[Rfam]
RNA sequence: CUGUGGCGCCCUCCUUGGGCGUUUCCUCCCUAGACUUCGGCCUGCGCUCCGGCGCGGGCCCUUUUCUUUUCUGGA
Numbered sequence: 001c002u003g004u005g006g007c008g009c010c011c012u013c014c015u016u017g018g019g020c021g022u023u024u025c026c027u028c029c030c031u032a033g034a035c036u037u038c039g040g041c042c043u044g045c046g047c048u049c050c051g052g053c054g055c056g057g058g059c060c061c062u063u064u065u066c067u068u069u070u071c072u073g074g075a
Stems, first nucleotide, its partner, number of pairs: 008020004039060009
The record is a 75-nucleotide RNA from Allobosea sp. WAO, which matches "Makes More Granules Regulator RNA (mmgR)" in Rfam.
Clan: suhB sRNA clan.
Pairs were carried over by alignment from the consensus structure.
About the family: SuhB later renamed mmgR (makes more granules regulator) was a putative non-coding RNA found multiple times in the Agrobacterium tumefaciens genome and related alpha-proteobacteria. Other non-coding RNAs uncovered in the same analysis include: speF, ybhL, metA, and serC.Several studies inSinorhizobium meliloti showed that suhB element is indeed a non-coding RNA:firstly it was detected on Northern blot and called Sm8RNA, secondly in an RNAseq study referred to as SmelC689.The mutant phenotype's (strain lacking the small RNA) cytoplasm contains higher content of polyhydroxybutyrate (PBH)storage granules than wild type strain. The sRNA is required to limit the PBH intracellular accumulation when the nitrogen-fixing Sinorhizobium meliloti is under condition of surplus carbon in relation to nitrogen. It has been renamed to mmgR. Further study confirmed that mmgR fine-tunes the regulation of PBH storage.Northern blot confirmed the expression of the sRNA in other rhizobia species.
Lineage of the source: Bacteria > Pseudomonadota > Alphaproteobacteria > Hyphomicrobiales > Allobosea.